[Rfam]
RNA sequence: GGGGGCCGGACACCGGCCCCCGGCCUGACCGCGGUACCUCGUACGGCCGCGGCGG
Numbered sequence: 001g002g003g004g005g006c007c008g009g010a011c012a013c014c015g016g017c018c019c020c021c022g023g024c025c026u027g028a029c030c031g032c033g034g035u036a037c038c039u040c041g042u043a044c045g046g047c048c049g050c051g052g053c054g055g
Base pairs, nucleotide, nucleotide: 001021002020003019004018005017006016007015025055026054027053029052030051031050032049033048034047035046

The family of this 55-nucleotide sequence from Streptosporangium saharense is "L17-Actino-Proteobacteria ribosomal protein leader".
The organism belongs to Streptosporangium, within Bacteria.
For this family Rfam cites "Discovery of 20 novel ribosomal leader candidates in bacteria and archaea" (Eckert and Weinberg, BMC Microbiol, 2020).